[Rfam]
Annotation
A member of the RNA family "Small nucleolar RNA snoR2/U65" from Coptis chinensis, 149 nucleotides long. The organism belongs to Coptis, within Eukaryota. A reference for the family is Shaw et al. (1998), "Localization and processing from a polycistronic precursor of novel snoRNAs in maize", J Cell Sci. Its family is annotated with RNA processing and nucleolus in the Gene Ontology. A search with the family's covariance model found it, with a score of 104 bits. The base pairs follow the family's consensus structure, which was predicted with WAR.
Nucleotides: 149
Stems, first nucleotide, its partner, number of pairs: 002062007009054001013050005020043003024036002077141005090130002095126003099122003
Number, partner (000 for none) and nucleotide at each position: 001000g002062g003061u004060c005059u006058g007057a008056u009054g010000c011000c012000a013050c014049g015048u016047c017046u018000g019000c020043a021042g022041u023000a024036g025035c026000u027000a028000a029000a030000a031000u032000u033000a034000u035025g036024c037000a038000a039000u040000g041022a042021c043020u044000g045000g046017a047016g048015a049014u050013g051000u052000u053000a054009u055000g056008a057007u058006u059005a060004g061003a062002c063000c064000g065000a066000u067000a068000u069000u070000a071000a072000a073000g074000u075000u076000u077141u078140u079139g080138c081137a082000u083000u084000u085000u086000g087000a088000u089000a090130g091129g092000a093000a094000c095126c096125u097124g098000u099122g100121g101120a102000u103000c104000g105000a106000a107000u108000u109000u110000a111000c112000a113000g114000u115000a116000u117000u118000u119000u120101u121100c122099c123000a124097u125096g126095g127000a128000g129091c130090c131000g132000u133000u134000u135000u136000a137081u138080g139079u140078g141077a142000u143000u144000a145000c146000a147000g148000u149000c